[Rfam]
Nucleotides: 181
Stems, first nucleotide, its partner, number of pairs: 052125002056122001058120006066112002073106004077086003089098003
Number, partner (000 for none) and nucleotide at each position: 001000a002000u003000c004000a005000g006000u007000u008000u009000u010000a011000u012000u013000u014000a015000g016000a017000u018000u019000g020000u021000u022000a023000a024000a025000c026000u027000c028000a029000a030000c031000a032000c033000u034000a035000c036000a037000u038000u039000a040000a041000a042000a043000c044000c045000g046000a047000g048000u049000a050000a051000a052125g053124u054000u055000a056122u057000u058120u059119g060118a061117u062116c063115u064000a065000a066112g067111g068000g069000c070000g071000g072000g073106c074105c075104u076103c077086a078085c079084c080000u081000u082000c083000g084079g085078g086077u087000u088000a089098u090097c091096a092000u093000u094000u095000g096091u097090g098089g099000u100000a101000c102000g103076g104075a105074g106073g107000a108000u109000u110000a111067c112066u113000g114000c115063a116062g117061a118060u119059c120058a121000u122056g123000u124053a125052c126000a127000c128000u129000c130000a131000a132000a133000u134000c135000c136000u137000g138000u139000a140000u141000a142000c143000a144000g145000g146000a147000g148000u149000u150000u151000a152000a153000a154000u155000a156000g157000u158000c159000c160000a161000u162000u163000a164000a165000u166000u167000g168000a169000u170000g171000c172000g173000g174000c175000c176000g177000g178000c179000a180000u181000a